[Rfam]
RNA sequence: UGCUCUGGUUAGUUUUGCUGGUUUGCAUUCAGCGUUCACUGUUGCUGUGCAAAUCCAUGCAAAACUGAUCGUGGCU
Number, nucleotide and partner (000 for none) at each position: 001u000002g000003c074004u073005c000006u071007g070008g069009u068010u067011a066012g065013u064014u063015u062016u061017g060018c059019u000020g056021g055022u053023u052024u051025g050026c049027a048028u047029u000030c000031a046032g045033c044034g000035u000036u000037c000038a000039c000040u000041g000042u000043u000044g033045c032046u031047g028048u027049g026050c025051a024052a023053a022054u000055c021056c020057a000058u000059g018060c017061a016062a015063a014064a013065c012066u011067g010068a009069u008070c007071g006072u000073g004074g003075c000076u000

Rfam assigns this 76-nucleotide sequence from Electrophorus electricus to the family "mir-19 microRNA precursor family". The organism belongs to Electrophorus, within Eukaryota. A reference for the family is Mourelatos et al. (2002), "miRNPs: a novel class of ribonucleoproteins containing numerous microRNAs", Genes Dev. A search with the family's covariance model found it, with a score of 76 bits. Rfam 15.1 lists 2,337 matches to the family in 651 species. The family is grouped with related families in Rfam's "mir-19 clan".